[Rfam]
RNA: mir-8517 microRNA precursor family
Organism: Plutella xylostella
RNA sequence: UUACUGAACGGAUUAACUAUUGAACUGUUCUGUCCCUCUCUGACAGAGAACAAUUUGUUCUUUGACAGAGAGUGACAAAACAGUUCAAUAGUUAAUUAAUAUAUAAU
Number, nucleotide and partner (000 for none) at each position: 001u106002u105003a104004c000005u103006g102007a000008a000009c000010g000011g097012a096013u095014u094015a093016a092017c091018u090019a089020u088021u087022g086023a085024a084025c083026u082027g081028u080029u069030c068031u067032g066033u065034c064035c000036c000037u000038c000039u000040c000041u000042g000043a000044c000045a000046g000047a000048g000049a059050a058051c057052a056053a000054u000055u000056u052057g051058u050059u049060c000061u000062u000063u000064g034065a033066c032067a031068g030069a029070g000071a000072g000073u000074g000075a000076c000077a000078a000079a000080a028081c027082a026083g025084u024085u023086c022087a021088a020089u019090a018091g017092u016093u015094a014095a013096u012097u011098a000099a000100u000101a000102u006103a005104u003105a002106a001107u000